[Rfam]
RNA: Small nucleolar RNA SNORD113/SNORD114 family
RNA sequence: UGGAUCAAUGAUGAGUAUUGGUGGAGGUGUCUGAAUCAACACUUUUGAUUAAGCCCUCUGUGUAACUCUGAGAUCUGU
Numbered sequence: 001u002g003g004a005u006c007a008a009u010g011a012u013g014a015g016u017a018u019u020g021g022u023g024g025a026g027g028u029g030u031c032u033g034a035a036u037c038a039a040c041a042c043u044u045u046u047g048a049u050u051a052a053g054c055c056c057u058c059u060g061u062g063u064a065a066c067u068c069u070g071a072g073a074u075c076u077g078u
Stems, first nucleotide, its partner, number of pairs: 002076005